Shown here is a 391-nucleotide sequence from Aliiroseovarius crassostreae, a member of the family "Bacterial RNase P class A". By type it is a ribozyme.
RNA sequence: GCGGAUGGCCGGAUGACCGCGGGUGACUGUCAGGGCGUGCCCAGGCGUGACGCGAGGAAAGUCCGGACUCCAUAAGGCAACGGUGCCGGGUAACGCCCGGCGGGGGCAACCCCAGGGACAGCGCCACAGAGAAAAGACGGCCCUGCAUGUCGGGGUCAGGGUGAAACGGUGGGGUAAGAGCCCACCGCGCGACUGGCAACAGAAGCGGCACGGCAAGCCCCACCGGGAGCAAUGCCAAAUAGGAAUCGCUAGGGGGCAACCCCGGGGCUGCCUUGGCCCUUCGCAGAUUCGGGUUGGCAGCUUGAGCGCCCUGGCAACAGGUCGCCUAGAGGAAUGGUCAUCCAGGGUGGAAACACCUGGACAAAAUCCGGCUUACAGGCCGUCCGCGUAU
Numbered sequence: 001g002c003g004g005a006u007g008g009c010c011g012g013a014u015g016a017c018c019g020c021g022g023g024u025g026a027c028u029g030u031c032a033g034g035g036c037g038u039g040c041c042c043a044g045g046c047g048u049g050a051c052g053c054g055a056g057g058a059a060a061g062u063c064c065g066g067a068c069u070c071c072a073u074a075a076g077g078c079a080a081c082g083g084u085g086c087c088g089g090g091u092a093a094c095g096c097c098c099g100g101c102g103g104g105g106g107c108a109a110c111c112c113c114a115g116g117g118a119c120a121g122c123g124c125c126a127c128a129g130a131g132a133a134a135a136g137a138c139g140g141c142c143c144u145g146c147a148u149g150u151c152g153g154g155g156u157c158a159g160g161g162u163g164a165a166a167c168g169g170u171g172g173g174g175u176a177a178g179a180g181c182c183c184a185c186c187g188c189g190c191g192a193c194u195g196g197c198a199a200c201a202g203a204a205g206c207g208g209c210a211c212g213g214c215a216a217g218c219c220c221c222a223c224c225g226g227g228a229g230c231a232a233u234g235c236c237a238a239a240u241a242g243g244a245a246u247c248g249c250u251a252g253g254g255g256g257c258a259a260c261c262c263c264g265g266g267g268c269u270g271c272c273u274u275g276g277c278c279c280u281u282c283g284c285a286g287a288u289u290c291g292g293g294u295u296g297g298c299a300g301c302u303u304g305a306g307c308g309c310c311c312u313g314g315c316a317a318c319a320g321g322u323c324g325c326c327u328a329g330a331g332g333a334a335u336g337g338u339c340a341u342c343c344a345g346g347g348u349g350g351a352a353a354c355a356c357c358u359g360g361a362c363a364a365a366a367u368c369c370g371g372c373u374u375a376c377a378g379g380c381c382g383u384c385c386g387c388g389u390a391u
Stems, first nucleotide, its partner, number of pairs: 001387010011376001012342007020054002023051002026048002059374003063371005068229004076274002081225005086100005101115001102113004116220002121218002123214003138160001140156006168186006187209001188207003193202003233299004243290005265279005306325003310321004
Dot-bracket structure: ((((((((((((((((((.((.((.((...................)).)).))....[[[.[[[[[((((....[[...((((((((((.....)))))(((((....)))).)((...(((((............(.((((((.....))))))...).......((((((.......))))))((((..(((....)))..))).)..)))..)))))))))))))...((((......(((((.................(((((...]])))))......))))).....))))......(((.((((....)))).)))..........)))))))........................]]]]]]]].).))))))))))....
Source information
Pairs were carried over by alignment from the consensus structure, which is taken from published work.